Source information
Shown here is a 61-nucleotide sequence from Desulfocurvibacter africanus, a member of the family "Fluoride riboswitch aptamer (crcB RNA motif)". A search with the family's covariance model found it, with a score of 51 bits.

[Rfam]
RNA sequence: CGCCGCACAGGGGAUGGAGUCCCCCUUGAACCGCCAAGUUGCUGAUGACUCCUACUGUCGA
Numbered sequence: 001c002g003c004c005g006c007a008c009a010g011g012g013g014a015u016g017g018a019g020u021c022c023c024c025c026u027u028g029a030a031c032c033g034c035c036a037a038g039u040u041g042c043u044g045a046u047g048a049c050u051c052c053u054a055c056u057g058u059c060g061a
Base pairs, nucleotide, nucleotide: 010025011024012023013022016052017051018050019049020048021047033042034041